[Rfam]
RNA sequence: UGCACUGUAUGGAAUCUAUAUUCUUAGCAGUUUAUGCUUUCUGGGUGUUUAAAGGACAGUGCAAUAUAAAUUCAGUAUCUGAUAUCGUUGGUUUUCUUGGUUUCAUGCAUAUUAAACCUGAUAGUUUUAUUGAUUAGUA
Dot-bracket structure: .((((((.......(((((((((..((.((.......)).))))))))....))).))))))..((.((.(((((.......(((...................)))..........)))).).)).))..........

Shown here is a 139-nucleotide RNA from Molossus molossus, a member of the family "Small nucleolar RNA SNORA8".
Pairs were carried over by alignment from the consensus structure, which was predicted with RNAfold.
It scores 97 bits against the family's covariance model.
About the family: ACA8 is a member of the H/ACA class of snoRNA that guide the sites of modification of uridines to pseudouridines.
Its Rfam clan is "SNORA8 clan".